[Rfam]
RNA sequence: CUCCAAUGAUGAUUCAGCCAUGCUAAUACUGAUACACCAGGCAGGUGCAGUUUGCAUCCUUGGGUGUAUGUGAGUGUAACUCACCUUCUCACACUGGAACAGUGUGUGCUGAGGAGA
Numbered sequence: 001c002u003c004c005a006a007u008g009a010u011g012a013u014u015c016a017g018c019c020a021u022g023c024u025a026a027u028a029c030u031g032a033u034a035c036a037c038c039a040g041g042c043a044g045g046u047g048c049a050g051u052u053u054g055c056a057u058c059c060u061u062g063g064g065u066g067u068a069u070g071u072g073a074g075u076g077u078a079a080c081u082c083a084c085c086u087u088c089u090c091a092c093a094c095u096g097g098a099a100c101a102g103u104g105u106g107u108g109c110u111g112a113g114g115a116g117a
Stems, first nucleotide, its partner, number of pairs: 001116004044058004
Annotation:
This 117-nucleotide RNA from Channa argus belongs to the Rfam family "Small nucleolar RNA U6-53/MBII-28". By type it is a C/D-box small nucleolar RNA. Pairs were carried over by alignment from the consensus structure. The organism belongs to Channa, within Eukaryota. Gene Ontology terms of the family: RNA processing and nucleolus.